[Rfam]
RNA sequence: UAAAGGAGAUGUGAGUAAUCUCUUUUUUGGCCAAUUUGUGGGAGUGAACCUCCUGCUAUAAACCAUCAAAUUGCGGGAACACCUUAAAGCAAUUUUAACCAAACAAACAUGGUAACAUAGUUUGUGGCACAGGUAAUGACUCGUGGUAAGGUAAAAUCAAAAUUGAUGCACGAAAGGAAAUAGGUUAUCCGCAGCCAAGCACCUACAUACUUAUAGUAUGGGUGUGCAGUUCAUCGACUAAAUGUUGGUUGGCAUGUAUAAUAUUUUAUAUUAUCGUGCUUAAGAUAUAGUCAAACCCUAAUGGAAACAUUAUA
Numbered sequence: 001u002a003a004a005g006g007a008g009a010u011g012u013g014a015g016u017a018a019u020c021u022c023u024u025u026u027u028u029g030g031c032c033a034a035u036u037u038g039u040g041g042g043a044g045u046g047a048a049c050c051u052c053c054u055g056c057u058a059u060a061a062a063c064c065a066u067c068a069a070a071u072u073g074c075g076g077g078a079a080c081a082c083c084u085u086a087a088a089g090c091a092a093u094u095u096u097a098a099c100c101a102a103a104c105a106a107a108c109a110u111g112g113u114a115a116c117a118u119a120g121u122u123u124g125u126g127g128c129a130c131a132g133g134u135a136a137u138g139a140c141u142c143g144u145g146g147u148a149a150g151g152u153a154a155a156a157u158c159a160a161a162a163u164u165g166a167u168g169c170a171c172g173a174a175a176g177g178a179a180a181u182a183g184g185u186u187a188u189c190c191g192c193a194g195c196c197a198a199g200c201a202c203c204u205a206c207a208u209a210c211u212u213a214u215a216g217u218a219u220g221g222g223u224g225u226g227c228a229g230u231u232c233a234u235c236g237a238c239u240a241a242a243u244g245u246u247g248g249u250u251g252g253c254a255u256g257u258a259u260a261a262u263a264u265u266u267u268a269u270a271u272u273a274u275c276g277u278g279c280u281u282a283a284g285a286u287a288u289a290g291u292c293a294a295a296c297c298c299u300a301a302u303g304g305a306a307a308c309a310u311u312a313u314a
Stems, first nucleotide, its partner, number of pairs: 061250005067244002072193006082184003194230002199225004206220005234293001236292005252279005260271001299312005
RNA: Group I catalytic intron